[Rfam]
The record is a 73-nucleotide RNA from Cryptotermes secundus, which matches "mir-87 microRNA precursor family" in Rfam. Rfam 15.1 lists 420 matches to the family in 285 species. On this family, see Stark et al., Genome Res 2007: "Systematic discovery and characterization of fly microRNAs using 12 Drosophila genomes".
RNA sequence: UUCUGGUGGGCCUGAAUCCUUGCUCAGCCUGUGACUAUGAAGAAGGUGAGCAAAGUUUCAGGUGUGUCAGUGA
Numbered sequence: 001u002u003c004u005g006g007u008g009g010g011c012c013u014g015a016a017u018c019c020u021u022g023c024u025c026a027g028c029c030u031g032u033g034a035c036u037a038u039g040a041a042g043a044a045g046g047u048g049a050g051c052a053a054a055g056u057u058u059c060a061g062g063u064g065u066g067u068c069a070g071u072g073a
Stems, first nucleotide, its partner, number of pairs: 003070005010063006018055001020053002023050004028046003
Rfam links the family to the GO terms RISC complex and miRNA-mediated post-transcriptional gene silencing.